[Rfam]
RNA: SAM riboswitch aptamer (S box leader)
Organism: Faecalibacterium duncaniae
RNA sequence: GACUUAUCAAGAGCGGCUGAGGGGACAGGCCCUGUGAAGCCCGACAACCUGUGCGAAAGCAUAAGGUGCCAAAUCCUGCGGGAAACCGAAAGAUAAGAG
Dot-bracket structure: ..((((((....(.(((...(((..[[[[)))......))))(.((.((...............)))).)...(]]]](((....)))..)))))))..
Numbered sequence: 001g002a003c004u005u006a007u008c009a010a011g012a013g014c015g016g017c018u019g020a021g022g023g024g025a026c027a028g029g030c031c032c033u034g035u036g037a038a039g040c041c042c043g044a045c046a047a048c049c050u051g052u053g054c055g056a057a058a059g060c061a062u063a064a065g066g067u068g069c070c071a072a073a074u075c076c077u078g079c080g081g082g083a084a085a086c087c088g089a090a091a092g093a094u095a096a097g098a099g
Stems, first nucleotide, its partner, number of pairs: 003097006013042001015041003021032003026078004043070001045068002048066002074091001079088003